[Rfam]
Source information:
A member of the RNA family "FuFi-1 RNA", 195 nucleotides long. The base pairs follow the family's consensus structure, which is taken from published work. It is one of the family's seed sequences. By type it is a small RNA.
RNA sequence: UUCAUCAACUAAGGGCUUACAUAUGGCAGAACUAAAACUGCCUAAGUGAUGAAACAUUCCAUAGAGACGUAAGUGCAAUUUGCGUAUUGCUAUUAAGAUAUUAAGAGCAAAAAAGCGUCUUAUAGCAAUUGCAAGAUGUUAAGAGUAAACAAAUUUGGGUAAAAUUCAGAUAUAAUUGCACUAUAUCUGUUUUUU
Numbered sequence: 001u002u003c004a005u006c007a008a009c010u011a012a013g014g015g016c017u018u019a020c021a022u023a024u025g026g027c028a029g030a031a032c033u034a035a036a037a038c039u040g041c042c043u044a045a046g047u048g049a050u051g052a053a054a055c056a057u058u059c060c061a062u063a064g065a066g067a068c069g070u071a072a073g074u075g076c077a078a079u080u081u082g083c084g085u086a087u088u089g090c091u092a093u094u095a096a097g098a099u100a101u102u103a104a105g106a107g108c109a110a111a112a113a114a115g116c117g118u119c120u121u122a123u124a125g126c127a128a129u130u131g132c133a134a135g136a137u138g139u140u141a142a143g144a145g146u147a148a149a150c151a152a153a154u155u156u157g158g159g160u161a162a163a164a165u166u167c168a169g170a171u172a173u174a175a176u177u178g179c180a181c182u183a184u185a186u187c188u189g190u191u192u193u194u195u
Stems, first nucleotide, its partner, number of pairs: 001053007025042005032158005054139005067085006074180006086129008163193002167189008